[Rfam]
RNA sequence: GUCUUAUUAAGAGUGAGUGGAGGGAAUUGGCCCUAUGAAGCUCCAGCAACUGCGCUUUGCGUGAGGUGCUAAAUCCAACAGGAGUUUCCUGAAAGAUAAGAA
Numbered sequence: 001g002u003c004u005u006a007u008u009a010a011g012a013g014u015g016a017g018u019g020g021a022g023g024g025a026a027u028u029g030g031c032c033c034u035a036u037g038a039a040g041c042u043c044c045a046g047c048a049a050c051u052g053c054g055c056u057u058u059g060c061g062u063g064a065g066g067u068g069c070u071a072a073a074u075c076c077a078a079c080a081g082g083a084g085u086u087u088c089c090u091g092a093a094a095g096a097u098a099a100g101a102a
Base pairs, nucleotide, nucleotide: 002101003100004099005098006097007096008095013044015043016042017041018040022033023032024031027078028077029076030075045070046069047068048067050066051065052062053061054060055059074094079091080090081089082088
RNA: SAM riboswitch aptamer (S box leader)
Organism: Staphylococcus haemolyticus